[Rfam]
RNA sequence: GGGCAAGAUAGGUGAAGUUAGCUAACCAGCAAGCUGGCUUUCAUACUUCACGAGUCUUAUUCUCACCUUCGGUGCUCAACGUUUUUAAUGUUAUUUUCAAUCUGGAG
Numbered sequence: 001g002g003g004c005a006a007g008a009u010a011g012g013u014g015a016a017g018u019u020a021g022c023u024a025a026c027c028a029g030c031a032a033g034c035u036g037g038c039u040u041u042c043a044u045a046c047u048u049c050a051c052g053a054g055u056c057u058u059a060u061u062c063u064c065a066c067c068u069u070c071g072g073u074g075c076u077c078a079a080c081g082u083u084u085u086u087a088a089u090g091u092u093a094u095u096u097u098c099a100a101u102c103u104g105g106a107g
Base pairs, nucleotide, nucleotide: 001098002097003096005094007092008091009090012051013050014049015048016047017046021042024039026037027036028035029034053084054083056081064074065073066072067071
Dot-bracket structure: (((.(.(((..((((((...(..(.((((....)))).)..)...)))))).((.(.......((((...))))......).)).....))).).))).........